[Rfam]
RNA sequence: AAUUACAUUUACAGGGCAGUUUCUCCUUUGGCACGUAUGGAGGCAUGCUAAGCCAUGCGUGCUAAAGGAGAAUUGCCCAGCGAUUCACCA
Numbered sequence: 001a002a003u004u005a006c007a008u009u010u011a012c013a014g015g016g017c018a019g020u021u022u023c024u025c026c027u028u029u030g031g032c033a034c035g036u037a038u039g040g041a042g043g044c045a046u047g048c049u050a051a052g053c054c055a056u057g058c059g060u061g062c063u064a065a066a067g068g069a070g071a072a073u074u075g076c077c078c079a080g081c082g083a084u085u086c087a088c089c090a
Base pairs, nucleotide, nucleotide: 007084008083009082012080014078015077016076017075018074019073020072023070024069025068026067029064030063031062032061033060034059035058036057037056038055039054040053
RNA: mir-399 microRNA precursor family
Organism: Oryza meyeriana